[Rfam]
RNA sequence: UUGCGUUAGGGAUUGAAGUGGAAAUCCUUUUUAUUUUUCAUAAAAAGAUUGUAGCGUAAAGCCCGACCUUUU
Numbered sequence: 001u002u003g004c005g006u007u008a009g010g011g012a013u014u015g016a017a018g019u020g021g022a023a024a025u026c027c028u029u030u031u032u033a034u035u036u037u038u039c040a041u042a043a044a045a046a047g048a049u050u051g052u053a054g055c056g057u058a059a060a061g062c063c064c065g066a067c068c069u070u071u072u
Stems, first nucleotide, its partner, number of pairs: 009064003013060002018055002023050004029045005
This 72-nucleotide RNA sequence belongs to the Rfam family "Flavo-1 RNA".